[Rfam]
RNA sequence: AAUUACAAGUUUAAGGCCAUAGCAGAAGCGCUCAUGGCACCGCCCUGUCAGAUUCCAAAGAAUCUGCAAAUUCUGCA
Numbered sequence: 001a002a003u004u005a006c007a008a009g010u011u012u013a014a015g016g017c018c019a020u021a022g023c024a025g026a027a028g029c030g031c032u033c034a035u036g037g038c039a040c041c042g043c044c045c046u047g048u049c050a051g052a053u054u055c056c057a058a059a060g061a062a063u064c065u066g067c068a069a070a071u072u073c074u075g076c077a
Base pairs, nucleotide, nucleotide: 009045015044016043017042022076023075024074025073026072027071028040030038049066050065051064052063053062054061055060
Mammalian CPEB3 ribozyme: a 77-nucleotide sequence from Alligator mississippiensis. It scores 48 bits against the family's covariance model.